[Rfam]
Shown here is a 158-nucleotide RNA from Glycine max, a member of the family "MIR4371 microRNA precursor family". A search with the family's covariance model found it, with a score of 120 bits. The family's consensus secondary structure was predicted with RNAalifold.
RNA sequence: CCGUUAAGUGAUGACAUGGCAGACAGAGUGUCACGUCAACACACCCAAUCAUUAACACGUCAGUGUCAUGUCAUUGAAGGUGAUGAUGUGAAAAUGAGGUGUCUGUGAUAAGAUAUGAUGACAUGACACUCCGUCUGCCACGUCAUUUCUUAAUCAAA
Numbered sequence: 001c002c003g004u005u006a007a008g009u010g011a012u013g014a015c016a017u018g019g020c021a022g023a024c025a026g027a028g029u030g031u032c033a034c035g036u037c038a039a040c041a042c043a044c045c046c047a048a049u050c051a052u053u054a055a056c057a058c059g060u061c062a063g064u065g066u067c068a069u070g071u072c073a074u075u076g077a078a079g080g081u082g083a084u085g086a087u088g089u090g091a092a093a094a095u096g097a098g099g100u101g102u103c104u105g106u107g108a109u110a111a112g113a114u115a116u117g118a119u120g121a122c123a124u125g126a127c128a129c130u131c132c133g134u135c136u137g138c139c140a141c142g143u144c145a146u147u148u149c150u151u152a153a154u155c156a157a158a
Stems, first nucleotide, its partner, number of pairs: 003154006010147006017140008026131008035122004040117002043114001045112001048109005055102004070087005